Small Cajal body specific RNA 1: a 166-nucleotide sequence from Pelusios castaneus.
Taxonomically the source falls in Pelusios (Eukaryota, Metazoa, Craniata, Sauropsida).
Rfam classes the family as a small Cajal body RNA.
The base pairs follow the family's consensus structure, which was predicted with RNAalifold.
On this family, see Darzacq et al., EMBO J 2002: "Cajal body-specific small nuclear RNAs: a novel class of 2'-O-methylation and pseudouridylation guide RNAs".
From the family's description: scaRNAs are a specific class of small nuclear RNAs which localise to the Cajal bodies and guide the modification of RNA polymerase II transcribed spliceosomal RNAs U1, U2, U4, U5 and U12. ACA35 belong to the H/ACA box class of guide RNAs as it has the predicted hairpin-hinge-hairpin-tail structure, conserved H/ACA-box motifs and is found associated with GAR1.
RNA sequence: AAGCACUUGAUACUAACCGAGCUAUCUGUAUCUUAGCGCUCCCACAGAGAUCUGAGAUAUAACUUGUGAUUGCUGGGUCUGAGAAGUGCAAUAUUAAAACAAGCCAUGAAGAAUUUAAGCUCAGUGUGUAGAGGAUCACACUGGGUUAUAACUCAGAGGCACAACU
Dot-bracket structure: ..((((((.......(((.(((.((((((((((.((..((.......))..)).)))))))......))).))).))).....)))))).............(((..................(((..(....)..))).((((((....)))))).)))......